RNA sequence: UCUUUAUUGAGUAUAUGGGGGCAAGGGCGCAAGAUUCAACGGGAUAGCUAACAGAAAAUAAAAAAGGAGGCAUAAGCCUCCUUUUUUUUGCACGU
Numbered sequence: 001u002c003u004u005u006a007u008u009g010a011g012u013a014u015a016u017g018g019g020g021g022c023a024a025g026g027g028c029g030c031a032a033g034a035u036u037c038a039a040c041g042g043g044a045u046a047g048c049u050a051a052c053a054g055a056a057a058a059u060a061a062a063a064a065a066g067g068a069g070g071c072a073u074a075a076g077c078c079u080c081c082u083u084u085u086u087u088u089u090g091c092a093c094g095u
Base pairs, nucleotide, nucleotide: 008038010036011035012034016031017030019028061086062085063084064083065082066081067080068079069078070077071076

The record is a 95-nucleotide RNA from Photobacterium aphoticum, which matches "sraA" in Rfam. The literature on the family includes a 2003 paper in Nucleic Acids Res by Hershberg et al., "A survey of small RNA-encoding genes in Escherichia coli". Taxonomically the source falls in Photobacterium (Bacteria, Pseudomonadati, Pseudomonadota, Vibrionales).